[Rfam]
RNA: tRNA
Organism: Aminobacter sp. MSH1
RNA sequence: UCCCGCUUCGUCUAAUGGUAGGACACCGCCCUUUGAAGGCGUGAAUCGUGGUUCGAGCCCAUGAGCGGGAA
Numbered sequence: 001u002c003c004c005g006c007u008u009c010g011u012c013u014a015a016u017g018g019u020a021g022g023a024c025a026c027c028g029c030c031c032u033u034u035g036a037a038g039g040c041g042u043g044a045a046u047c048g049u050g051g052u053u054c055g056a057g058c059c060c061a062u063g064a065g066c067g068g069g070a071a
Stems, first nucleotide, its partner, number of pairs: 001070007010024004027041004047063005